[Rfam]
RNA sequence: CUGCCUGUGGCCCCUGGUGCAGUGCUGCAUCUCUGGUCAGUUGGUAGUCUGAGAUGAAGCACUGUAGCUCGGGACGUGGGACCA
Numbered sequence: 001c002u003g004c005c006u007g008u009g010g011c012c013c014c015u016g017g018u019g020c021a022g023u024g025c026u027g028c029a030u031c032u033c034u035g036g037u038c039a040g041u042u043g044g045u046a047g048u049c050u051g052a053g054a055u056g057a058a059g060c061a062c063u064g065u066a067g068c069u070c071g072g073g074a075c076g077u078g079g080g081a082c083c084a
Base pairs, nucleotide, nucleotide: 011073012072013071016068018066019065020064021063022062023061024060025059026058028056029055030054031053032052033051035049036048037046
Shown here is an 84-nucleotide RNA sequence from Labrus bergylta, a member of the family "mir-143 microRNA precursor family". The base pairs follow the family's consensus structure, which was predicted with RNAalifold. Rfam 15.1 lists 657 matches to the family in 637 species. It scores 88 bits against the family's covariance model.